The family of this 161-nucleotide sequence from Kitasatospora atroaurantiaca is "c-di-AMP riboswitch aptamer (ydaO/yuaA leader)".
The source organism's lineage runs through Bacteria, Actinomycetota, Kitasatosporales, Streptomycetaceae and Kitasatospora.
[Rfam]
RNA sequence: AACGCAGAAACGCACCACGGCAGGGGCGGGGGAACCAGGUAAGUCGCCCGGAGGCGGUCCUCGGACCGACUCGGGGCUUGGGGUGAAGCCGUGCUCAGCACGGCCGGGCAACUCCAGCCCGAAUCCGACAGCUCACCUCGCAGGCGUGGGAGAGGAACGCA
Numbered sequence: 001a002a003c004g005c006a007g008a009a010a011c012g013c014a015c016c017a018c019g020g021c022a023g024g025g026g027c028g029g030g031g032g033a034a035c036c037a038g039g040u041a042a043g044u045c046g047c048c049c050g051g052a053g054g055c056g057g058u059c060c061u062c063g064g065a066c067c068g069a070c071u072c073g074g075g076g077c078u079u080g081g082g083g084u085g086a087a088g089c090c091g092u093g094c095u096c097a098g099c100a101c102g103g104c105c106g107g108g109c110a111a112c113u114c115c116a117g118c119c120c121g122a123a124u125c126c127g128a129c130a131g132c133u134c135a136c137c138u139c140g141c142a143g144g145c146g147u148g149g150g151a152g153a154g155g156a157a158c159g160c161a
Stems, first nucleotide, its partner, number of pairs: 003146003011024001026141006036080005081126003089103004106120004